[Rfam]
RNA: FMN riboswitch aptamer (RFN element)
Organism: Acidomonas methanolica
RNA sequence: UGAUGUUCUCAGGGCGGGGUGCAAUUCCCCACCGGCGGUAGGUGCAGUCCCCUGCACGAGCCCGCGAGCGCCUUCGGAGUUUCUCCGGAGGGUCAGCAGAUCCGGUCCGAUUCCGGAGCCGACGGUUACAGUCCGGAUGAAAGAGAACGAUG
Numbered sequence: 001u002g003a004u005g006u007u008c009u010c011a012g013g014g015c016g017g018g019g020u021g022c023a024a025u026u027c028c029c030c031a032c033c034g035g036c037g038g039u040a041g042g043u044g045c046a047g048u049c050c051c052c053u054g055c056a057c058g059a060g061c062c063c064g065c066g067a068g069c070g071c072c073u074u075c076g077g078a079g080u081u082u083c084u085c086c087g088g089a090g091g092g093u094c095a096g097c098a099g100a101u102c103c104g105g106u107c108c109g110a111u112u113c114c115g116g117a118g119c120c121g122a123c124g125g126u127u128a129c130a131g132u133c134c135g136g137a138u139g140a141a142a143g144a145g146a147a148c149g150a151u152g
Stems, first nucleotide, its partner, number of pairs: 004149007017029003031132002033121002035065004060119002068097002101117005123135003